[Rfam]
RNA sequence: UAUUGUGGUGGUCUCUAUACUUGGCAGAUCUGUAACUGUAUCAGAGCAGCCUUAAACUACCACAGAGAUCAGAGAGGAGAAGCAUGUGCUGAGAACUUAAAGUUUUUCGUUUUCAGCUUUUGUUGUUCAUCUCCUACAGAA
Dot-bracket structure: ....(((((((...........(((.(.((((.........)))).).))).....)))))))............(((((.((....))........................................))))).......
Numbered sequence: 001u002a003u004u005g006u007g008g009u010g011g012u013c014u015c016u017a018u019a020c021u022u023g024g025c026a027g028a029u030c031u032g033u034a035a036c037u038g039u040a041u042c043a044g045a046g047c048a049g050c051c052u053u054a055a056a057c058u059a060c061c062a063c064a065g066a067g068a069u070c071a072g073a074g075a076g077g078a079g080a081a082g083c084a085u086g087u088g089c090u091g092a093g094a095a096c097u098u099a100a101a102g103u104u105u106u107u108c109g110u111u112u113u114c115a116g117c118u119u120u121u122g123u124u125g126u127u128c129a130u131c132u133c134c135u136a137c138a139g140a141a
Stems, first nucleotide, its partner, number of pairs: 005063007023051003027047001029045004076134005082089002